RNA sequence: ACAAAUCACGAGUUUGUGCGUGAAUCUAACACCGUUGGAUGCAAUAAAAUGGACGGCUCCGAUGGGGUUUGAUUCACGCACAAACUUGGGAUGUGUCC
Dot-bracket structure: (((.(((...((((((((((((((((.(((.((...........(.......)..........)).))).))))))))))))))))...))).)))..
RNA: MIR403 microRNA precursor family
Organism: Morella rubra